[Rfam]
RNA sequence: GCCACCAGAGGUAGAAAGAACCCGUCGCUAUACACCGAUCCGUCAGGGUUGGCAAAGCUCGAAAGGGCUAUGAGAGAUGCGGGGGUGGCGGUCCUGCCUGGUGGU
Number, nucleotide and partner (000 for none) at each position: 001g105002c104003c103004a102005c101006c100007a099008g098009a000010g000011g031012u030013a029014g028015a000016a000017a000018g000019a000020a000021c000022c091023c090024g089025u088026c087027g000028c014029u013030a012031u011032a000033c074034a000035c052036c051037g050038a049039u048040c047041c046042g000043u000044c000045a000046g041047g040048g039049u038050u037051g036052g035053c000054a000055a000056a000057g000058c000059u000060c000061g000062a000063a000064a000065g000066g000067g000068c000069u000070a000071u000072g000073a000074g033075a000076g000077a000078u000079g097080c096081g095082g094083g093084g000085g000086u000087g026088g025089c024090g023091g022092u000093c083094c082095u081096g080097c079098c008099u007100g006101g005102u004103g003104g002105u001
A member of the RNA family "skipping-rope RNA", 105 nucleotides long. It is one of the family's seed sequences. It is annotated as a small RNA.